[Rfam]
RNA sequence: ACCUGACCGGAGCGCGACGCGCUCCGGCCAUCGAAACGAACACCACACCCCGGGAAGUGCGGGGUGUGUCAGGGCGUU
Numbered sequence: 001a002c003c004u005g006a007c008c009g010g011a012g013c014g015c016g017a018c019g020c021g022c023u024c025c026g027g028c029c030a031u032c033g034a035a036a037c038g039a040a041c042a043c044c045a046c047a048c049c050c051c052g053g054g055a056a057g058u059g060c061g062g063g064g065u066g067u068g069u070c071a072g073g074g075c076g077u078u
Base pairs, nucleotide, nucleotide: 004030005029007027008026009025010024011023012022013021014020015019045067046066047065048064049063050062051061052060